RNA sequence: ACUAUAUAAAGAUAUAUGACCACCAGAUAGGUUGGUAUCUCCCUUUAUAGUAUUAUUAAAUCAAAGCUUGUUGAUAGUUUGUUGUGUAACUUCAUUUAGAUGAAUUGAAACAAAUUUAAGACAAGUGGAUAUAGGAUAAUCGUCCGUCCUUUACAUUGGUAUAAAAGUGAUCUGAAAAGUAUUCAUAACUUUUUAGUGACGGUCAU
Numbered sequence: 001a002c003u004a005u006a007u008a009a010a011g012a013u014a015u016a017u018g019a020c021c022a023c024c025a026g027a028u029a030g031g032u033u034g035g036u037a038u039c040u041c042c043c044u045u046u047a048u049a050g051u052a053u054u055a056u057u058a059a060a061u062c063a064a065a066g067c068u069u070g071u072u073g074a075u076a077g078u079u080u081g082u083u084g085u086g087u088a089a090c091u092u093c094a095u096u097u098a099g100a101u102g103a104a105u106u107g108a109a110a111c112a113a114a115u116u117u118a119a120g121a122c123a124a125g126u127g128g129a130u131a132u133a134g135g136a137u138a139a140u141c142g143u144c145c146g147u148c149c150u151u152u153a154c155a156u157u158g159g160u161a162u163a164a165a166a167g168u169g170a171u172c173u174g175a176a177a178a179g180u181a182u183u184c185a186u187a188a189c190u191u192u193u194u195a196g197u198g199a200c201g202g203u204c205a206u
Base pairs, nucleotide, nucleotide: 001051002050003049004048005047006046008044010040011039012038013037014036015035017034018033019032020031021030022028066126067125068124069123070122071121072120077115078114079113080112081111082110083109088106089105091103133150134149135148136147137146139203140202141201142200143199144198145167152161153160154159172196173195174194175193176192177191178190179189180188

This 206-nucleotide RNA belongs to the Rfam family "IS605-orfB-I RNA". It is one of the family's seed sequences. By type it is a small RNA. The base pairs follow the family's consensus structure, which is taken from published work.